[Rfam]
RNA: Bacterial small subunit ribosomal RNA, nucleotides 547 to 901
RNA sequence: GGCGUAAAGGGCGUGUAGGCGGCUGGGUACGCCGCGUGUGAAAGUCCCCGGCUCAACCGGGGAGGGUCGCGCGGGACGGCCUGGCUCGAGGGCGGGAGAGGCGGGUGGAAUUCCCGGUGUAGCGGUGAAAUGCGUAGAGAUCGGGAGGAACGCCGGUGGCGAAGGCGGCCCGCUGGCCCGUACCUGACGCUGAGGCGCGAAGGCGUGGGGAGCGAACCGGAUUAGAUACCCGGGUAGUCCACGCAGUAAACGAUGCGGGCGAGGUGUGGGUGGUGUUGACCCCAUCCGUGCCGGCGCCAACGCAGUAAGCCCGCCGCCUGGGGAGUACGGCCGCAAGGCUAAAACUCAAAGGAAU
Numbered sequence: 001g002g003c004g005u006a007a008a009g010g011g012c013g014u015g016u017a018g019g020c021g022g023c024u025g026g027g028u029a030c031g032c033c034g035c036g037u038g039u040g041a042a043a044g045u046c047c048c049c050g051g052c053u054c055a056a057c058c059g060g061g062g063a064g065g066g067u068c069g070c071g072c073g074g075g076a077c078g079g080c081c082u083g084g085c086u087c088g089a090g091g092g093c094g095g096g097a098g099a100g101g102c103g104g105g106u107g108g109a110a111u112u113c114c115c116g117g118u119g120u121a122g123c124g125g126u127g128a129a130a131u132g133c134g135u136a137g138a139g140a141u142c143g144g145g146a147g148g149a150a151c152g153c154c155g156g157u158g159g160c161g162a163a164g165g166c167g168g169c170c171c172g173c174u175g176g177c178c179c180g181u182a183c184c185u186g187a188c189g190c191u192g193a194g195g196c197g198c199g200a201a202g203g204c205g206u207g208g209g210g211a212g213c214g215a216a217c218c219g220g221a222u223u224a225g226a227u228a229c230c231c232g233g234g235u236a237g238u239c240c241a242c243g244c245a246g247u248a249a250a251c252g253a254u255g256c257g258g259g260c261g262a263g264g265u266g267u268g269g270g271u272g273g274u275g276u277u278g279a280c281c282c283c284a285u286c287c288g289u290g291c292c293g294g295c296g297c298c299a300a301c302g303c304a305g306u307a308a309g310c311c312c313g314c315c316g317c318c319u320g321g322g323g324a325g326u327a328c329g330g331c332c333g334c335a336a337g338g339c340u341a342a343a344a345c346u347c348a349a350a351g352g353a354a355u
Stems, first nucleotide, its partner, number of pairs: 001318003009315001011198004016192001018191003022085007030078002032074007045063007089185003092181005100174007107151001111147008122133003159166002203244006212238002217233004255314006263292011296303002320347003329340004